[Rfam]
RNA sequence: UAUGGCAAUGAUGAUUCUUAGAAUCUUUUCCUACACACUGAUCAUCAAUCGUGUUGACUAUCAACUCCGCUUAUUAUCUGAUGCCAUU
Numbered sequence: 001u002a003u004g005g006c007a008a009u010g011a012u013g014a015u016u017c018u019u020a021g022a023a024u025c026u027u028u029u030c031c032u033a034c035a036c037a038c039u040g041a042u043c044a045u046c047a048a049u050c051g052u053g054u055u056g057a058c059u060a061u062c063a064a065c066u067c068c069g070c071u072u073a074u075u076a077u078c079u080g081a082u083g084c085c086a087u088u
Base pairs, nucleotide, nucleotide: 003086004085005084006083007082

The family of this 88-nucleotide RNA from Ipomoea nil is "Small nucleolar RNA R16". A search with the family's covariance model found it, with a score of 76 bits. Rfam links the family to the GO terms RNA processing and nucleolus. Rfam classes the family as a C/D-box small nucleolar RNA. On this family, see Marker et al., Curr Biol 2002: "Experimental RNomics: identification of 140 candidates for small non-messenger RNAs in the plant Arabidopsis thaliana". The family's consensus secondary structure was predicted with PFOLD.